Rfam assigns this 172-nucleotide RNA sequence from Rheinheimera sp. SA_1 to the family "Lysine riboswitch aptamer".
It scores 86 bits against the family's covariance model.
The base pairs follow the family's consensus structure, which is taken from published work.
RNA sequence: UAGACCAGAAGAGGAGCGUUCACCAGGUAGUUCAGCGCAGGUUGCUAUAAACCGGAUACUGAAUGAGGGGGAUGAACGCCGAGGAUGUUACGUCGUAGCAGCGUAACGUCCGGUCAAAAGGGCUGAAUCCCUGCGACUGUCACCUGAAACCCGGUGGAGAGCUUCUGGCCUU
Numbered sequence: 001u002a003g004a005c006c007a008g009a010a011g012a013g014g015a016g017c018g019u020u021c022a023c024c025a026g027g028u029a030g031u032u033c034a035g036c037g038c039a040g041g042u043u044g045c046u047a048u049a050a051a052c053c054g055g056a057u058a059c060u061g062a063a064u065g066a067g068g069g070g071g072a073u074g075a076a077c078g079c080c081g082a083g084g085a086u087g088u089u090a091c092g093u094c095g096u097a098g099c100a101g102c103g104u105a106a107c108g109u110c111c112g113g114u115c116a117a118a119a120g121g122g123c124u125g126a127a128u129c130c131c132u133g134c135g136a137c138u139g140u141c142a143c144c145u146g147a148a149a150c151c152c153g154g155u156g157g158a159g160a161g162c163u164u165c166u167g168g169c170c171u172u
Base pairs, nucleotide, nucleotide: 006167007166008165009164010163011162016079017078018077019076020075021074022073024071030064031063032062033061034060035059037057083111084110085109086108087107088106089105090104091103092102093101112138113137114136115135119132120131121130122129140157141156142155143154144153146151